The family of this 85-nucleotide sequence is "skipping-rope RNA". By type it is a small RNA.
RNA sequence: AUUGUUUGAGGUGGUAAAUUCCGCUGCAACCACGCGCCCUUUGGGCUAAAAGAGAUGUAGGAGACGGCAGCGCCUACCAAACAAU
Dot-bracket structure: ((((((((..(((((.......[[[[[.))))).(((((...)))).....)....(((((.....]]]]].)))))))))))))